[Rfam]
RNA sequence: GCUCAACAUUAAGAGCUGGGCCAACGCCCACGCCAACCUGCCUUCCGGGGCAAGGUGGUUGCCAAGAGCGAUGUGGCCCGUCAGGGCAACCAAGCCGGCAGCU
Numbered sequence: 001g002c003u004c005a006a007c008a009u010u011a012a013g014a015g016c017u018g019g020g021c022c023a024a025c026g027c028c029c030a031c032g033c034c035a036a037c038c039u040g041c042c043u044u045c046c047g048g049g050g051c052a053a054g055g056u057g058g059u060u061g062c063c064a065a066g067a068g069c070g071a072u073g074u075g076g077c078c079c080g081u082c083a084g085g086g087c088a089a090c091c092a093a094g095c096c097g098g099c100a101g102c103u
Stems, first nucleotide, its partner, number of pairs: 006074005015031001017030005032059003037055003040051003045098004076087004
RNA: SAM-I/IV (S-adenosyl methionine) riboswitch aptamer